[Rfam]
RNA sequence: AAGCUCAAGGGCGUCGAUAUCCGCUUCGGUGGUUUCCCUCUACGUAAGCUGUGAUCCGCAAGGUAGCAUCCUGGAGUUUGGCCCGCUGUUAGUAAGUGCACAGAAAGCGGCGGGUU
Numbered sequence: 001a002a003g004c005u006c007a008a009g010g011g012c013g014u015c016g017a018u019a020u021c022c023g024c025u026u027c028g029g030u031g032g033u034u035u036c037c038c039u040c041u042a043c044g045u046a047a048g049c050u051g052u053g054a055u056c057c058g059c060a061a062g063g064u065a066g067c068a069u070c071c072u073g074g075a076g077u078u079u080g081g082c083c084c085g086c087u088g089u090u091a092g093u094a095a096g097u098g099c100a101c102a103g104a105a106a107g108c109g110g111c112g113g114g115u116u
Base pairs, nucleotide, nucleotide: 001079002078003077004076005075006074008072009071010070011045012044013043014042016040017039021032022031023030024029048067049066056063057062081115082114083113084112085111086110087109088108089107096101
RNA: Flavobacterium-1 RNA